[Rfam]
Shown here is an 86-nucleotide RNA sequence from Callithrix jacchus, a member of the family "Small nucleolar RNA SNORD86". The literature on the family includes a 2001 paper in Biochem Biophys Res Commun by Filippini et al., "U86, a novel snoRNA with an unprecedented gene organization in yeast". Rfam's curators write: U86 belongs to the C/D family of snoRNAs. It is the human orthologue of Xenopus laevis U86 and has no identified RNA target. The family's consensus secondary structure was predicted with RNAalifold.

RNA sequence: AAAAAAAAAAAACACUGAGCAUGCCUCCCUGAUUUAUACAGGCCCCUGCUGUGGAGGUGAUGGCCAGUCCAGGUGUCUCGUUGAUU
Numbered sequence: 001a002a003a004a005a006a007a008a009a010a011a012a013c014a015c016u017g018a019g020c021a022u023g024c025c026u027c028c029c030u031g032a033u034u035u036a037u038a039c040a041g042g043c044c045c046c047u048g049c050u051g052u053g054g055a056g057g058u059g060a061u062g063g064c065c066a067g068u069c070c071a072g073g074u075g076u077c078u079c080g081u082u083g084a085u086u
Base pairs, nucleotide, nucleotide: 001086002085005082006081011076018074020072023069025067026066027063028062030060032058033057034056035055039053040052041050042049043048